[Rfam]
RNA sequence: UAAUCUAUUUGUGGCAAAUCAUCAUCUAGUUGUAGCAAAUCUACAUCUGACAGCUUAAAAUCACUCGUUAUCACGGGCCUGACUAUAUCAUUAAGUUUUUUUAAAAAAAUUAAAAAUAAAAAUGAUUUGUUUUGAAUUCCUAA
Numbered sequence: 001u002a003a004u005c006u007a008u009u010u011g012u013g014g015c016a017a018a019u020c021a022u023c024a025u026c027u028a029g030u031u032g033u034a035g036c037a038a039a040u041c042u043a044c045a046u047c048u049g050a051c052a053g054c055u056u057a058a059a060a061u062c063a064c065u066c067g068u069u070a071u072c073a074c075g076g077g078c079c080u081g082a083c084u085a086u087a088u089c090a091u092u093a094a095g096u097u098u099u100u101u102u103a104a105a106a107a108a109a110u111u112a113a114a115a116a117u118a119a120a121a122a123u124g125a126u127u128u129g130u131u132u133u134g135a136a137u138u139c140c141u142a143a
Stems, first nucleotide, its partner, number of pairs: 007138001008136002014130002018126002023124003027119001029117003
Shown here is a 143-nucleotide sequence from Populus tomentosa, a member of the family "MIR480 microRNA precursor family". Taxonomically the source falls in Populus (Eukaryota, Viridiplantae, Magnoliopsida, Malpighiales). A search with the family's covariance model found it, with a score of 83 bits. A reference for the family is Lu et al. (2005), "Novel and mechanical stress-responsive MicroRNAs in Populus trichocarpa that are absent from Arabidopsis", Plant Cell.